[Rfam]
RNA: tRNA
Organism: Exophiala dermatitidis
RNA sequence: UCCGCAUUGGUGUAAUGGUAACAUCGCCGGUUUUCAAUAGAAAACCAUAAACCCGGCAGCUCGGGGUUCAAUUCCCCGAUGCGGAG
Dot-bracket structure: (((((((..((((.......)))).(((((......................)))))....(((((.......)))))))))))).